[Rfam]
RNA: Acido-Lenti-1 RNA
RNA sequence: ACCAGGGCUCACGGCCUGGUCUAUUAUCUGCCGCCCCGUUGGGGCU
Dot-bracket structure: ((((((.(....).))))))............(((((...))))).